A member of the RNA family "Antizyme RNA frameshifting stimulation element", 56 nucleotides long. The literature on the family includes a 2004 paper in J Mol Biol by Ivanov et al., "Identification of a new antizyme mRNA +1 frameshifting stimulatory pseudoknot in a subset of diverse invertebrates and its apparent absence in intermediate species". This family represents a structural element which is found in antizyme mRNA and is known to promote frameshifting. Antizyme genes have have two partially overlapping open reading frames, the second, which encodes the functional protein requires +1 translational frameshifting. This frameshift is stimulated by a pseudoknot present 3' of the frameshift site in the antizyme mRNA. The frameshifting efficiency is dependent on the level of polyamines in the cell, when the polyamine concentration is high frameshifting is more likely to occur which leads to an increase in the quantity of functional antizyme produced. The functional antizyme acts to reduce ornithine decarboxylase (ODC) activity which leads to a drop in polyamines present in the cell. Its family is annotated with translational frameshifting in the Gene Ontology. By type it is a frameshift element. Rfam's curators put it in the seed alignment.

RNA sequence: UGAUGCCCCUCACCCACUGUUGAAGACCCUCAGUGGGUGAGGGGGCGGCAAGGAUC
Numbered sequence: 001u002g003a004u005g006c007c008c009c010u011c012a013c014c015c016a017c018u019g020u021u022g023a024a025g026a027c028c029c030u031c032a033g034u035g036g037g038u039g040a041g042g043g044g045g046c047g048g049c050a051a052g053g054a055u056c
Stems, first nucleotide, its partner, number of pairs: 006044006013037006025056002028053003